[Rfam]
Overview
Rfam assigns this 78-nucleotide RNA from Trifolium subterraneum to the family "Small nucleolar RNA Z199". Rfam's curators write: snoZ199 is a C/D box small nucleolar RNA, which acts as a methylation guide RNA for sites on 18S and 25S rRNA. Rice snoZ199 is reported to be homologous to Arabidopsis snoR13.
RNA sequence: AAAUCAUAUGAUGAGAAAAUAACUGCAACAAUAUGAUGGAUUAGUCCAUGAUUCCUAGUAUUUAAGUCUCUGAUGAUU
Numbered sequence: 001a002a003a004u005c006a007u008a009u010g011a012u013g014a015g016a017a018a019a020u021a022a023c024u025g026c027a028a029c030a031a032u033a034u035g036a037u038g039g040a041u042u043a044g045u046c047c048a049u050g051a052u053u054c055c056u057a058g059u060a061u062u063u064a065a066g067u068c069u070c071u072g073a074u075g076a077u078u
Stems, first nucleotide, its partner, number of pairs: 001078002004076003038047003